RNA sequence: CUCUCACCUAUGUGUAUAGGACCUCAAAAGAUCACCAUUAAAGUUGGCACGGAUUUCUAAAAAAGUUAUCACAUGAGUAUGAGACUUGACUUUUCUAUAGAUCCGUGCCAAAUUUAAUGGUGAUUUUUUAGGGUCCUAUACACAUGGGUGGGAG
Numbered sequence: 001c002u003c004u005c006a007c008c009u010a011u012g013u014g015u016a017u018a019g020g021a022c023c024u025c026a027a028a029a030g031a032u033c034a035c036c037a038u039u040a041a042a043g044u045u046g047g048c049a050c051g052g053a054u055u056u057c058u059a060a061a062a063a064a065g066u067u068a069u070c071a072c073a074u075g076a077g078u079a080u081g082a083g084a085c086u087u088g089a090c091u092u093u094u095c096u097a098u099a100g101a102u103c104c105g106u107g108c109c110a111a112a113u114u115u116a117a118u119g120g121u122g123a124u125u126u127u128u129u130a131g132g133g134u135c136c137u138a139u140a141c142a143c144a145u146g147g148g149u150g151g152g153a154g
Stems, first nucleotide, its partner, number of pairs: 002153012015140010026129003030125003034121009044111013058097002061094008069082003073078001
Rfam assigns this 154-nucleotide RNA from Amborella trichopoda to the family "MIR8565 microRNA precursor family".
The match comes from Rfam's covariance-model search (136 bits).
NCBI's taxonomy places the organism under Eukaryota, Viridiplantae, Magnoliopsida, Amborellales, Amborella.